[Rfam]
RNA sequence: UGCAGCUGAGUCAAAUUCAGUCCUGGGCCGGGCGGUGCUGGGGACUGGCCAAAAAGCUGCCACAGCAAAAUCUGCAGCUCCUGAGCCCCACUGUCCCUCUCCCGUGACCCUGGGGAUGAAUAAAUGCUACAAACACCA
Numbered sequence: 001u002g003c004a005g006c007u008g009a010g011u012c013a014a015a016u017u018c019a020g021u022c023c024u025g026g027g028c029c030g031g032g033c034g035g036u037g038c039u040g041g042g043g044a045c046u047g048g049c050c051a052a053a054a055a056g057c058u059g060c061c062a063c064a065g066c067a068a069a070a071u072c073u074g075c076a077g078c079u080c081c082u083g084a085g086c087c088c089c090a091c092u093g094u095c096c097c098u099c100u101c102c103c104g105u106g107a108c109c110c111u112g113g114g115g116a117u118g119a120a121u122a123a124a125u126g127c128u129a130c131a132a133a134c135a136c137c138a
Stems, first nucleotide, its partner, number of pairs: 002060004018047007026039003074130001076128003079124001086115005
About this RNA: Rfam assigns this 138-nucleotide RNA from Thinocorus orbignyianus to the family "Small nucleolar RNA SNORA5". ACA5 is a member of the H/ACA class of snoRNA that guide the sites of modification of uridines to pseudouridines. The family is grouped with related families in Rfam's "SNORA5 clan". Rfam classes the family as an H/ACA-box small nucleolar RNA.